[Rfam]
RNA: Small nucleolar RNA Z105
Organism: Helianthus annuus
RNA sequence: UGAACAUAAUGAGGAAUGUUUUAUAUAUUCCGAUCUAAUUCAUGAAUGGAGUAUUAAACCUCCUACUCAUUCUGA
Numbered sequence: 001u002g003a004a005c006a007u008a009a010u011g012a013g014g015a016a017u018g019u020u021u022u023a024u025a026u027a028u029u030c031c032g033a034u035c036u037a038a039u040u041c042a043u044g045a046a047u048g049g050a051g052u053a054u055u056a057a058a059c060c061u062c063c064u065a066c067u068c069a070u071u072c073u074g075a
Stems, first nucleotide, its partner, number of pairs: 006070002009067001029050002